[Rfam]
RNA sequence: GAUUCAAUAUGCACUGUUUUUCUUUCACUUCUUUUUUCGCUCACCAUAAGUGGGGGCUAUCGUUACGCAAGAAAGAAGCGAAAGACGAACAGCAAGCCUCCCAACCGGGAGGCUUUUUUGU
Numbered sequence: 001g002a003u004u005c006a007a008u009a010u011g012c013a014c015u016g017u018u019u020u021u022c023u024u025u026c027a028c029u030u031c032u033u034u035u036u037u038c039g040c041u042c043a044c045c046a047u048a049a050g051u052g053g054g055g056g057c058u059a060u061c062g063u064u065a066c067g068c069a070a071g072a073a074a075g076a077a078g079c080g081a082a083a084g085a086c087g088a089a090c091a092g093c094a095a096g097c098c099u100c101c102c103a104a105c106c107g108g109g110a111g112g113c114u115u116u117u118u119u120g121u
Stems, first nucleotide, its partner, number of pairs: 016090004021085006028078007036070002042054001044053002055064003094115009
Phenylalanine leader peptide: a 121-nucleotide RNA from Photobacterium halotolerans. A reference for the family is Gurvich et al. (2010), "Two groups of phenylalanine biosynthetic operon leader peptides genes: a high level of apparently incidental frameshifting in decoding Escherichia coli pheL", Nucleic Acids Res. The base pairs follow the family's consensus structure, which was predicted with CMfinder. The family has 71 seed sequences and 379 matches in Rfam 15.1. The match comes from Rfam's covariance-model search (84 bits). Gene Ontology term of the family: cellular amino acid metabolic process.